[Rfam]
RNA sequence: AAUCAAGGCGACUAGGGUUCCGCCCGCACAAACCCGGGGUCUGGACCGAGAGUCGCCGGCCUCGGAUGCGGGGCUACACGGCGGGAUAAAAGCCCGGGAGAG
Number, nucleotide and partner (000 for none) at each position: 001a000002a000003u000004c000005a000006a000007g057008g056009c055010g054011a053012c052013u000014a000015g047016g046017g000018u000019u000020c044021c043022g041023c038024c037025c036026g035027c000028a000029c000030a000031a000032a000033c000034c000035c026036g025037g024038g023039g000040u000041c022042u000043g021044g020045a000046c016047c015048g000049a000050g000051a000052g012053u011054c010055g009056c008057c007058g075059g074060c073061c072062u071063c070064g069065g000066a000067u000068g000069c064070g063071g062072g061073g060074c059075u058076a000077c097078a000079c100080g000081g000082c000083g095084g094085g093086a000087u000088a000089a000090a000091a000092g000093c085094c084095c083096g000097g077098g000099a000100g079101a000102g000

Shown here is a 102-nucleotide sequence from Acidihalobacter aeolianus, a member of the family "Guanidine-I riboswitch aptamer". NCBI's taxonomy places the organism under Bacteria, Pseudomonadota, Gammaproteobacteria, Chromatiales, Acidihalobacter. The pairing is the family consensus, mapped onto this sequence.